[Rfam]
RNA sequence: UUGCGCGGUAGAGGAGCGAUACAAAUCAGUAGCAGCAGUUGGGGUGAUGCCUAUGAAUUGUUGUGAAAGGGUGUUAUCGCCGAAGUAGAUUGGUAUAUCAACGCCACCUGCUGGGGUUGUAUCAAAUAGGUACAACACUGCCAUAGUCUAUAAUUUGUUAAACUAUGGAGCGCUACUGUAGGG
Numbered sequence: 001u002u003g004c005g006c007g008g009u010a011g012a013g014g015a016g017c018g019a020u021a022c023a024a025a026u027c028a029g030u031a032g033c034a035g036c037a038g039u040u041g042g043g044g045u046g047a048u049g050c051c052u053a054u055g056a057a058u059u060g061u062u063g064u065g066a067a068a069g070g071g072u073g074u075u076a077u078c079g080c081c082g083a084a085g086u087a088g089a090u091u092g093g094u095a096u097a098u099c100a101a102c103g104c105c106a107c108c109u110g111c112u113g114g115g116g117u118u119g120u121a122u123c124a125a126a127u128a129g130g131u132a133c134a135a136c137a138c139u140g141c142c143a144u145a146g147u148c149u150a151u152a153a154u155u156u157g158u159u160a161a162a163c164u165a166u167g168g169a170g171c172g173c174u175a176c177u178g179u180a181g182g183g
Stems, first nucleotide, its partner, number of pairs: 006178006016080006022073002032064008084112005091106004113139002116136008141168007

Description
The record is a 183-nucleotide sequence from Vibrio paucivorans, which matches "Lysine riboswitch aptamer" in Rfam. It scores 120 bits against the family's covariance model.